The record is a 109-nucleotide RNA sequence from Rhizobacter sp. AJA081-3, which matches "SAH (S-adenosyl-L-homocysteine) riboswitch aptamer" in Rfam. The organism belongs to Rhizobacter, within Bacteria.

RNA sequence: UCCCCCGAGGAGCGUUGCGACGACCCGGGCCGCCAGGCCCACACCACGGUUGCCAGGCUCGGGCGGAGCAGGCGCCCCGCGCGACUGCGUUCAACGGCGCUCACCCGAC
Numbered sequence: 001u002c003c004c005c006c007g008a009g010g011a012g013c014g015u016u017g018c019g020a021c022g023a024c025c026c027g028g029g030c031c032g033c034c035a036g037g038c039c040c041a042c043a044c045c046a047c048g049g050u051u052g053c054c055a056g057g058c059u060c061g062g063g064c065g066g067a068g069c070a071g072g073c074g075c076c077c078c079g080c081g082c083g084a085c086u087g088c089g090u091u092c093a094a095c096g097g098c099g100c101u102c103a104c105c106c107g108a109c
Base pairs, nucleotide, nucleotide: 002065004063005062006061007060008059021052022051023050024049025048